Shown here is a 92-nucleotide sequence from Prunus avium, a member of the family "MIR6288 microRNA precursor family". Rfam 15.1 lists 293 matches to the family in 9 species. Gene Ontology terms of the family: RISC complex and miRNA-mediated post-transcriptional gene silencing.
RNA sequence: UAAAAAUUGGCCACUUGUUAUUUUUUAAUUAUUUUUUAGUAUAUUAAUAGUUUUUAAGAACCAAUUAGAAAAUGACAAGUGGCUAGUUUUGA
Numbered sequence: 001u002a003a004a005a006a007u008u009g010g011c012c013a014c015u016u017g018u019u020a021u022u023u024u025u026u027a028a029u030u031a032u033u034u035u036u037u038a039g040u041a042u043a044u045u046a047a048u049a050g051u052u053u054u055u056a057a058g059a060a061c062c063a064a065u066u067a068g069a070a071a072a073u074g075a076c077a078a079g080u081g082g083c084u085a086g087u088u089u090u091g092a
Stems, first nucleotide, its partner, number of pairs: 003090028033060007